[Rfam]
Rfam assigns this 110-nucleotide RNA sequence from Aquisalibacillus elongatus to the family "TPP riboswitch aptamer (THI element)". The match comes from Rfam's covariance-model search (72 bits).
RNA sequence: CAUAAGUUGUAGGGGAACCAGUGUUGCUGGUUGAGAUUGUAUCCGUAAGAUACUGACUCUUUGAACCUGACCUGGCUAAGACCAGCGUAGGGAACACCGUGAACGUAUAA
Numbered sequence: 001c002a003u004a005a006g007u008u009g010u011a012g013g014g015g016a017a018c019c020a021g022u023g024u025u026g027c028u029g030g031u032u033g034a035g036a037u038u039g040u041a042u043c044c045g046u047a048a049g050a051u052a053c054u055g056a057c058u059c060u061u062u063g064a065a066c067c068u069g070a071c072c073u074g075g076c077u078a079a080g081a082c083c084a085g086c087g088u089a090g091g092g093a094a095c096a097c098c099g100u101g102a103a104c105g106u107a108u109a110a
Base pairs, nucleotide, nucleotide: 006098008096009095010094011060012059013058014057016054017031018030019029020028021027039053040052041051042050066091067090068089069088072085073084074083075082
Dot-bracket structure: .....(.(((((((.((((((.....))))).......((((.......)))))..)))).....((((..((((......))))..))))..))).)............